[Rfam]
RNA sequence: AGUAUCAUGCAAUGUAAGUCGCUUUGGAUAAAAGCAUCUGCCAAAUGUAUAAAA
Numbered sequence: 001a002g003u004a005u006c007a008u009g010c011a012a013u014g015u016a017a018g019u020c021g022c023u024u025u026g027g028a029u030a031a032a033a034g035c036a037u038c039u040g041c042c043a044a045a046u047g048u049a050u051a052a053a054a
Stems, first nucleotide, its partner, number of pairs: 013043001014041003021035005